[Rfam]
Shown here is a 325-nucleotide RNA from Gluconobacter oxydans, a member of the family "Alphaproteobacteria transfer-messenger RNA". Its Rfam clan is "tRNA clan". It is one of the family's seed sequences. About the family: Bacterial tmRNA, also known as 10Sa RNA or SsrA, is named for its dual tRNA and mRNA-like properties. Its role is to liberate the mRNA from a stalled ribosome. To accomplish this part of the tmRNA is used as a reading frame that ends in a translation stop signal. The broken mRNA is replaced in the ribosome by the tmRNA and translation of the tmRNA leads to addition of a proteolysis tag to the incomplete protein enabling recognition by a protease. Recently a number of permuted tmRNA genes have been found encoded in two parts. tmRNAs have been identified in eubacteria and some chloroplasts but are absent from archaeal and eukaryote nuclear genomes. Taxonomically the source falls in Gluconobacter oxydans (Bacteria, Pseudomonadati, Alphaproteobacteria, Acetobacterales). Gene Ontology term of the family: RNA catabolic process. It is annotated as a non-coding RNA gene.
RNA sequence: UCCCUUGCGACGGGACACGCGCACUCCUAUGUUCAGCAGUGCAAGGGGUUCGUCCCCGGCUAUGGCGAUAAACGGUAAGUGAAAUAAGUGUUGUGGACCCGGGGGCAGUGCCCGGCGUCUCCACCAAGAACAACCCCUCGCAAAAGGGGUCUGUGGGGACGAAACAGGCUCGACACGCAUGGUAAAGACUUAUCUUUUGCCCGGCAUUGUACCACCGUCAUCGGGCUAAACUUACAAGUGCCAACGAUAACUCAGAGGUGCUCGCUGUCGCUGCAUAAGCGAUAAGCGCGGUUCGGGAGGGCACCGGGCAACAGAAGCCCUCCCA
Numbered sequence: 001u002c003c004c005u006u007g008c009g010a011c012g013g014g015a016c017a018c019g020c021g022c023a024c025u026c027c028u029a030u031g032u033u034c035a036g037c038a039g040u041g042c043a044a045g046g047g048g049u050u051c052g053u054c055c056c057c058g059g060c061u062a063u064g065g066c067g068a069u070a071a072a073c074g075g076u077a078a079g080u081g082a083a084a085u086a087a088g089u090g091u092u093g094u095g096g097a098c099c100c101g102g103g104g105g106c107a108g109u110g111c112c113c114g115g116c117g118u119c120u121c122c123a124c125c126a127a128g129a130a131c132a133a134c135c136c137c138u139c140g141c142a143a144a145a146g147g148g149g150u151c152u153g154u155g156g157g158g159a160c161g162a163a164a165c166a167g168g169c170u171c172g173a174c175a176c177g178c179a180u181g182g183u184a185a186a187g188a189c190u191u192a193u194c195u196u197u198u199g200c201c202c203g204g205c206a207u208u209g210u211a212c213c214a215c216c217g218u219c220a221u222c223g224g225g226c227u228a229a230a231c232u233u234a235c236a237a238g239u240g241c242c243a244a245c246g247a248u249a250a251c252u253c254a255g256a257g258g259u260g261c262u263c264g265c266u267g268u269c270g271c272u273g274c275a276u277a278a279g280c281g282a283u284a285a286g287c288g289c290g291g292u293u294c295g296g297g298a299g300g301g302c303a304c305c306g307g308g309c310a311a312c313a314g315a316a317g318c319c320c321u322c323c324c325a
Stems, first nucleotide, its partner, number of pairs: 041060002045056004064201005074194007089179003093176003099115005116161007202217003207228001209226001212224002289306004296323006